[Rfam]
Nucleotides: 305
Stems, first nucleotide, its partner, number of pairs: 001048003004023007028045005050303008061292006067281002072276002079270003083267005093260001095259005101253001105252007113241002116239005122232009131170004136165004141160004146155003171175001178222001180220003189213003196206003
Number, partner (000 for none) and nucleotide at each position: 001048a002047c003046c004023g005022g006021g007020u008019u009018g010017g011000g012000u013000g014000g015000c016000g017010c018009c019008a020007a021006c022005u023004u024000g025000u026000c027000a028045c029044g030043g031042g032041c033000a034000u035000g036000c037000u038000u039000c040000u041032g042031u043030c044029c045028g046003g047002g048001u049000a050303g051302u052301u053300a054299g055298g056297u057296g058000u059000g060000a061292g062291g063290g064289u065288u066287g067281u068280g069000g070000c071000a072276u073275g074000c075000g076000u077000u078000a079270u080269u081268g082000u083267g084266a085265c086264g087263c088000u089000g090000u091000c092000c093260c094000c095259a096258g097257g098256a099255u100000g101253u102000g103000g104000a105252u106251g107250a108249u109248g110247c111246g112000u113241c114240c115000a116239u117238c118237c119236c120235a121000a122232a123231c124230c125229a126228g127227g128226a129225g130224u131170u132169g133168a134167c135000a136165u137164u138163g139162a140000g141160g142159u143158a144157u145000a146155g147154u148153c149000g150000u151000a152000a153148g154147a155146c156000a157144g158143u159142a160141c161000a162139u163138c164137g165136a166000g167134g168133u169132c170131a171175c172000u173000a174000a175171g176000g177000a178222a179000a180220g181219g182218u183000a184000u185000a186000c187000c188000g189213c190212c191211c192000c193000a194000g195000g196206c197205u198204g199000g200000u201000a202000a203000a204198c205197a206196g207000a208000g209000c210000a211191g212190g213189g214000a215000a216000a217000a218182g219181c220180c221000c222178u223000c224130g225129c226128u227127c228126u229125u230124g231123g232122u233000a234000g235120u236119g237118g238117g239116a240114g241113g242000a243000u244000c245000u246111c247110g248109u249108a250107u251106c252105a253101g254000a255099a256098u257097u258096c259095u260093g261000a262000u263087g264086u265085g266084u267083c268081c269080a270079a271000a272000c273000c274000u275073c276072g277000c278000u279000a280068c281067a282000a283000g284000c285000g286000a287066u288065a289064a290063u291062u292061c293000g294000a295000u296057c297056a298055u299054c300053u301052a302051a303050c304000g305000c